[Rfam]
RNA: c-di-AMP riboswitch aptamer (ydaO/yuaA leader)
Organism: Cohnella sp. CIP 111063
RNA sequence: AGUGAAUUUAAGCUUAGUUUCCGGAAACUUCCGGAAAGCGGGGGAACCAAGUUUUUGGGGCGAAUCAUUCAGCGAGAAUGUAGGGAACCAUCUAUCCCGAGCCCGUCAGCUAACCUCGUUUGCACUGGAUGGGUCAUAA
Numbered sequence: 001a002g003u004g005a006a007u008u009u010a011a012g013c014u015u016a017g018u019u020u021c022c023g024g025a026a027a028c029u030u031c032c033g034g035a036a037a038g039c040g041g042g043g044g045a046a047c048c049a050a051g052u053u054u055u056u057g058g059g060g061c062g063a064a065u066c067a068u069u070c071a072g073c074g075a076g077a078a079u080g081u082a083g084g085g086a087a088c089c090a091u092c093u094a095u096c097c098c099g100a101g102c103c104c105g106u107c108a109g110c111u112a113a114c115c116u117c118g119u120u121u122g123c124a125c126u127g128g129a130u131g132g133g134u135c136a137u138a139a
Stems, first nucleotide, its partner, number of pairs: 012123002018037008038119006048057002058104003066080004083098004